Description:
MIR535 microRNA precursor family: a 78-nucleotide sequence from Spinacia oleracea. Taxonomically the source falls in Spinacia (Eukaryota, eudicotyledons, Chenopodioideae, Anserineae). For this family Rfam cites "Conservation and divergence of microRNAs and their functions in Euphorbiaceous plants" (Zeng et al., Nucleic Acids Res, 2010). Its family is annotated with RISC complex and miRNA-mediated post-transcriptional gene silencing in the Gene Ontology.
[Rfam]
RNA sequence: AAGAUUGUUUGACGAUGAGAGAGAGCACGCUUGUCAGCAUUCACGCACAUGCGUGCUGUCUCGCAUCGUUAUAUAAUC
Dot-bracket structure: .........(((((.((..((...((((((.(((............))).))))))...))..)).))))).......
The family's consensus secondary structure was predicted with RNAalifold.